[Rfam]
RNA sequence: CGGUGAGGUAGAGGUUGCAGUCAUUAAGAGUAUCAUUUCAGGAGAUGUAGUGGCAUCGAUGAAUGAAUGGGAAAGGAAUGGUUGCCGAAGUAAGAAAUGCCCACUGUGCAUUCUUGCUGGGUCUGCUAUUUAAUAAGUGCAGAACUGUCACAAACAACUUGUUUGUGGAGAGCUAUCGAGAGG
Numbered sequence: 001c002g003g004u005g006a007g008g009u010a011g012a013g014g015u016u017g018c019a020g021u022c023a024u025u026a027a028g029a030g031u032a033u034c035a036u037u038u039c040a041g042g043a044g045a046u047g048u049a050g051u052g053g054c055a056u057c058g059a060u061g062a063a064u065g066a067a068u069g070g071g072a073a074a075g076g077a078a079u080g081g082u083u084g085c086c087g088a089a090g091u092a093a094g095a096a097a098u099g100c101c102c103a104c105u106g107u108g109c110a111u112u113c114u115u116g117c118u119g120g121g122u123c124u125g126c127u128a129u130u131u132a133a134u135a136a137g138u139g140c141a142g143a144a145c146u147g148u149c150a151c152a153a154a155c156a157a158c159u160u161g162u163u164u165g166u167g168g169a170g171a172g173c174u175a176u177c178g179a180g181a182g183g
Base pairs, nucleotide, nucleotide: 007177008176009175010174011173017085018084019083020082021081022080023079024078025077033070034069035068036067037066039065040064089118090117091116092115093114094113095112097111098110099109100108119146120145122143123142124141125140126139129136148168149167150166151165152164153163154162
RNA: Lysine riboswitch aptamer